The family of this 72-nucleotide RNA sequence from Drosophila gunungcola is "mir-929 microRNA precursor family".
For this family Rfam cites "Computational and transcriptional evidence for microRNAs in the honey bee genome" (Weaver et al., Genome Biol, 2007).
It scores 79 bits against the family's covariance model.
RNA sequence: GCAGCUCAAAUUGACUCUAGUAGGGAGUCCUUUUCUUGAGCGACUCCCUAACGGAGUCAGAUUGAGCUUCGA
Numbered sequence: 001g002c003a004g005c006u007c008a009a010a011u012u013g014a015c016u017c018u019a020g021u022a023g024g025g026a027g028u029c030c031u032u033u034u035c036u037u038g039a040g041c042g043a044c045u046c047c048c049u050a051a052c053g054g055a056g057u058c059a060g061a062u063u064g065a066g067c068u069u070c071g072a
Stems, first nucleotide, its partner, number of pairs: 011060008021050009